[Rfam]
RNA sequence: CCGCCCGUCGCUACUACCGAUUGAAUGGUUUAGUGAGGUUUCGGGACUUGGCGCUCAUGAGGUGGCAACACCACAUCUGUGCUGGGAACUUGAACAAACUUGAUCAUUUAGAGGAAGUAAAAGUCGUAACAAGGUUUCCCGUAGGUGGUGAACCUGCAGGAUCAA
Numbered sequence: 001c002c003g004c005c006c007g008u009c010g011c012u013a014c015u016a017c018c019g020a021u022u023g024a025a026u027g028g029u030u031u032a033g034u035g036a037g038g039u040u041u042c043g044g045g046a047c048u049u050g051g052c053g054c055u056c057a058u059g060a061g062g063u064g065g066c067a068a069c070a071c072c073a074c075a076u077c078u079g080u081g082c083u084g085g086g087a088a089c090u091u092g093a094a095c096a097a098a099c100u101u102g103a104u105c106a107u108u109u110a111g112a113g114g115a116a117g118u119a120a121a122a123g124u125c126g127u128a129a130c131a132a133g134g135u136u137u138c139c140c141g142u143a144g145g146u147g148g149u150g151a152a153c154c155u156g157c158a159g160g161a162u163c164a165a
Base pairs, nucleotide, nucleotide: 001133003130006126007125009123012119013118014117015116017114018113021110023109024108025107026106027105028104029103030102032100033099034098037095039093040092043089047085048084050082052081053080054079057076058075061072062071063070139159141157142156143155144154145153

Shown here is a 165-nucleotide part of an RNA from Anurofeca richardsi, a member of the family "Eukaryotic small subunit ribosomal RNA". NCBI's taxonomy places the organism under Eukaryota, Opisthokonta, Ichthyosporea, Ichthyophonida, Anurofeca. The family's consensus secondary structure is taken from published work. Gene Ontology terms of the family: ribosome and structural constituent of ribosome. The family has 90 seed sequences and 75,755 matches in Rfam 15.1.